[Rfam]
RNA sequence: AUAUUCUUUCGGGGCAGGGUGAAAUUCCCAACCGGCGGUGAUAGUCCGUGAGCUGACGUCAUUUUGAUGGAUGCUGAUUCUGUGAAACUCAGAAACCGACAGUAUAGUCUGGAUGGGAGAAAGAAUAG
Numbered sequence: 001a002u003a004u005u006c007u008u009u010c011g012g013g014g015c016a017g018g019g020u021g022a023a024a025u026u027c028c029c030a031a032c033c034g035g036c037g038g039u040g041a042u043a044g045u046c047c048g049u050g051a052g053c054u055g056a057c058g059u060c061a062u063u064u065u066g067a068u069g070g071a072u073g074c075u076g077a078u079u080c081u082g083u084g085a086a087a088c089u090c091a092g093a094a095a096c097c098g099a100c101a102g103u104a105u106a107g108u109c110u111g112g113a114u115g116g117g118a119g120a121a122a123g124a125a126u127a128g
Stems, first nucleotide, its partner, number of pairs: 003126008017029003031108002033098002035049004044096002052074002078094005100111003
Shown here is a 128-nucleotide sequence from Macrococcus sp. DPC7161, a member of the family "FMN riboswitch aptamer (RFN element)". Lineage of the source: Bacteria > Bacillati > Caryophanales > Staphylococcaceae > Macrococcus. The family's consensus secondary structure is taken from published work.